[Rfam]
RNA sequence: AGAGCAUCAAUGAGGAAUACCAAAUCGUUAUCCUUGCACUAUGAUUCUCCCGUGAAGAAAAUUUUGGGGACCAACAAUCUGAGUUGCUC
Numbered sequence: 001a002g003a004g005c006a007u008c009a010a011u012g013a014g015g016a017a018u019a020c021c022a023a024a025u026c027g028u029u030a031u032c033c034u035u036g037c038a039c040u041a042u043g044a045u046u047c048u049c050c051c052g053u054g055a056a057g058a059a060a061a062u063u064u065u066g067g068g069g070a071c072c073a074a075c076a077a078u079c080u081g082a083g084u085u086g087c088u089c
Stems, first nucleotide, its partner, number of pairs: 002089005008083001

This 89-nucleotide RNA from Ipomoea nil belongs to the Rfam family "Small nucleolar RNA snoR26". A search with the family's covariance model found it, with a score of 70 bits. The organism belongs to Ipomoea, within Eukaryota.